[Rfam]
RNA sequence: ACUGGGAGCGUGGCGUCUCCUGUAAUCCGGCUACUCGGAGGUCGGGGUUGGAGGAUGGUUUGAGGCCGGGAGUCCUGGUGCUGAGAUGUCCAUGUUGACUGGACGUCCACACUAAGCUUGGUAUUAAUAUGGACCCCCCGGAGGAGUCUGGGGGGUGCAGGUUAACUAAGGAGGGGCGAACCGGGCCAGGGGGGAAACCCAGCAGCCAAAAGUCCCCGUAUCGGGCAGUAGUGGGAUAGCGGCCGGGAGUGGACGCUCAGUAUCAGCCCGACCAAUAUAACCAGACCCAUUCCUUU
Numbered sequence: 001a002c003u004g005g006g007a008g009c010g011u012g013g014c015g016u017c018u019c020c021u022g023u024a025a026u027c028c029g030g031c032u033a034c035u036c037g038g039a040g041g042u043c044g045g046g047g048u049u050g051g052a053g054g055a056u057g058g059u060u061u062g063a064g065g066c067c068g069g070g071a072g073u074c075c076u077g078g079u080g081c082u083g084a085g086a087u088g089u090c091c092a093u094g095u096u097g098a099c100u101g102g103a104c105g106u107c108c109a110c111a112c113u114a115a116g117c118u119u120g121g122u123a124u125u126a127a128u129a130u131g132g133a134c135c136c137c138c139c140g141g142a143g144g145a146g147u148c149u150g151g152g153g154g155g156u157g158c159a160g161g162u163u164a165a166c167u168a169a170g171g172a173g174g175g176g177c178g179a180a181c182c183g184g185g186c187c188a189g190g191g192g193g194g195a196a197a198c199c200c201a202g203c204a205g206c207c208a209a210a211a212g213u214c215c216c217c218g219u220a221u222c223g224g225g226c227a228g229u230a231g232u233g234g235g236a237u238a239g240c241g242g243c244c245g246g247g248a249g250u251g252g253a254c255g256c257u258c259a260g261u262a263u264c265a266g267c268c269c270g271a272c273c274a275a276u277a278u279a280a281c282c283a284g285a286c287c288c289a290u291u292c293c294u295u296u
Stems, first nucleotide, its partner, number of pairs: 001042003004021005026039003044294004049289003056283005064273002067270004075266011089253005095247001099246004104241003107235002110233005116226009125164004130159002133156010166170001173216005184207003191200003
A member of the RNA family "Metazoan signal recognition particle RNA" from Danaus chrysippus, 296 nucleotides long. The match comes from Rfam's covariance-model search (253 bits). By type it is a non-coding RNA gene. The family has 91 seed sequences and 383,523 matches in Rfam 15.1. The base pairs follow the family's consensus structure, which is taken from published work. Rfam describes the family as follows. The signal recognition particle (SRP) is a universally conserved ribonucleoprotein. It is involved in the co-translational targeting of proteins to membranes. The eukaryotic SRP consists of a 300-nucleotide 7S RNA and six proteins: SRPs 72, 68, 54, 19, 14, and 9. Archaeal SRP consists of a 7S RNA and homologues of the eukaryotic SRP19 and SRP54 proteins.